[Rfam]
A member of the RNA family "Streptomyces-metK RNA" from Streptomyces inusitatus, 118 nucleotides long. It scores 110 bits against the family's covariance model. The base pairs follow the family's consensus structure, which is taken from published work.
RNA sequence: UCGAGACGGGUGGUUCAGAGCCGAGUGGUGGCGGAUAAACUGGUGGUGGAACGUCGCGGGGCGCAGCCCCCUGCCGGUCCGCCAAUGAUCAGCCAGCAGCCGCUGCAACCCCAGGGAG
Numbered sequence: 001u002c003g004a005g006a007c008g009g010g011u012g013g014u015u016c017a018g019a020g021c022c023g024a025g026u027g028g029u030g031g032c033g034g035a036u037a038a039a040c041u042g043g044u045g046g047u048g049g050a051a052c053g054u055c056g057c058g059g060g061g062c063g064c065a066g067c068c069c070c071c072u073g074c075c076g077g078u079c080c081g082c083c084a085a086u087g088a089u090c091a092g093c094c095a096g097c098a099g100c101c102g103c104u105g106c107a108a109c110c111c112c113a114g115g116g117a118g
Stems, first nucleotide, its partner, number of pairs: 048080003052076002056074001058072004094105004